[Rfam]
RNA sequence: CCCUCAUCACCAUCACCCUGGCUAGUCUUUCAGGCGAUGUGUGCUGGAAGAUAGUUUUUUAAUCUUCCAGUGGCGCGCAGAACGUAAGAGAAGCCCCCGGAAGAAAUCUUCCGGGGGCUUUUUUUU
Numbered sequence: 001c002c003c004u005c006a007u008c009a010c011c012a013u014c015a016c017c018c019u020g021g022c023u024a025g026u027c028u029u030u031c032a033g034g035c036g037a038u039g040u041g042u043g044c045u046g047g048a049a050g051a052u053a054g055u056u057u058u059u060u061a062a063u064c065u066u067c068c069a070g071u072g073g074c075g076c077g078c079a080g081a082a083c084g085u086a087a088g089a090g091a092a093g094c095c096c097c098c099g100g101a102a103g104a105a106a107u108c109u110u111c112c113g114g115g116g117g118c119u120u121u122u123u124u125u126u
Base pairs, nucleotide, nucleotide: 008043009042010041011039012038013037014036017034018033019032020031021030044070045069046068047067048066049065050064051063088123089122090121091120092119093118094117095116096115097114098113099112100111101110102109103108
A member of the RNA family "Histidine operon leader" from Serratia symbiotica, 126 nucleotides long. Taxonomically the source falls in Serratia symbiotica (Bacteria, Pseudomonadati, Enterobacterales, Serratia). A reference for the family is Kolter and Yanofsky (1982), "Attenuation in amino acid biosynthetic operons", Annu Rev Genet. Rfam describes the family as follows. At least 6 amino acid operons are known to be regulated by attenuation. In each a leader sequence of 150-200 bp is found upstream of the first gene in the operon. This leader sequence can assume two different secondary structures known as the terminator and the anti-terminator structure. In each case the leader also codes for very short peptide sequence that is rich in the end product amino acid of the operon. The terminator structure is recognised as a termination signal for RNA polymerase and the operon is not transcribed. This structure forms when the cell has an excess of the regulatory amino acid and ribosome movement over the leader transcript is not impeded. When there is a deficiency of the charged tRNA of the regulatory amino acid the ribosome translating the leader peptide stalls and the antiterminator structure can form. This allows RNA polymerase to transcribe the operon. In the Rfam alignment the consensus structure is of the terminator structure. A search with the family's covariance model found it, with a score of 105 bits. The family's consensus secondary structure is taken from published work. It is annotated as a cis-regulatory leader. Rfam links the family to the GO term histidine biosynthetic process.